The family of this 93-nucleotide RNA sequence from Gallus gallus is "Vault RNA". It is annotated as a non-coding RNA gene. NCBI's taxonomy places the organism under Eukaryota, Opisthokonta, Bilateria, Teleostomi, Gallus. The family's consensus secondary structure is taken from published work. It scores 36 bits against the family's covariance model.

[Rfam]
RNA sequence: GGGCCAGCUCUAGCCUAGCAGUUCCUUCAGCUUCACACAAUUUAUGUGCUCCUCGACUGGGUUUUGAUCCUGCAGACACCCUUUGGCCCACUC
Numbered sequence: 001g002g003g004c005c006a007g008c009u010c011u012a013g014c015c016u017a018g019c020a021g022u023u024c025c026u027u028c029a030g031c032u033u034c035a036c037a038c039a040a041u042u043u044a045u046g047u048g049c050u051c052c053u054c055g056a057c058u059g060g061g062u063u064u065u066g067a068u069c070c071u072g073c074a075g076a077c078a079c080c081c082u083u084u085g086g087c088c089c090a091c092u093c
Stems, first nucleotide, its partner, number of pairs: 002088006013077001015075002018073004027067004